[Rfam]
RNA sequence: AUAUUUCAGUAUUAACUGCCGAAGACAGCAGGUGCCGUAAGGCAUAAGGUGCAAACGCCUGCCGAGGAAUGUACAAGAAUCAUUUUUUAUAAAUGAAUUGUAGACCUCUCUGUCCAUAUGGCGGAGAGGUUUUUCUUUGCGGUU
Numbered sequence: 001a002u003a004u005u006u007c008a009g010u011a012u013u014a015a016c017u018g019c020c021g022a023a024g025a026c027a028g029c030a031g032g033u034g035c036c037g038u039a040a041g042g043c044a045u046a047a048g049g050u051g052c053a054a055a056c057g058c059c060u061g062c063c064g065a066g067g068a069a070u071g072u073a074c075a076a077g078a079a080u081c082a083u084u085u086u087u088u089a090u091a092a093a094u095g096a097a098u099u100g101u102a103g104a105c106c107u108c109u110c111u112g113u114c115c116a117u118a119u120g121g122c123g124g125a126g127a128g129g130u131u132u133u134u135c136u137u138u139g140c141g142g143u144u
Stems, first nucleotide, its partner, number of pairs: 028062006034043003105129010

Source information
Shown here is a 144-nucleotide sequence from Lacrimispora saccharolytica, a member of the family "Ribosomal protein L10 leader". It scores 89 bits against the family's covariance model. Rfam classes the family as a cis-regulatory leader.